[Rfam]
RNA sequence: GGCUGGUUCAAAGGUAGUGUGUUAUCUCGAUUGAUUUUUCAGUCAGUUACAGAUUGAAUUUUUUGUUCUACUCUUUCCACUCUCUCUGCCUUGACUAGCCUUAA
Numbered sequence: 001g002g003c004u005g006g007u008u009c010a011a012a013g014g015u016a017g018u019g020u021g022u023u024a025u026c027u028c029g030a031u032u033g034a035u036u037u038u039u040c041a042g043u044c045a046g047u048u049a050c051a052g053a054u055u056g057a058a059u060u061u062u063u064u065g066u067u068c069u070a071c072u073c074u075u076u077c078c079a080c081u082c083u084c085u086c087u088g089c090c091u092u093g094a095c096u097a098g099c100c101u102u103a104a
Stems, first nucleotide, its partner, number of pairs: 001100008010092002015088003019084001021082001041072003045069002
Shown here is a 104-nucleotide RNA sequence from Panthera leo, a member of the family "Y RNA". The base pairs follow the family's consensus structure, which is taken from published work. Rfam classes the family as a non-coding RNA gene.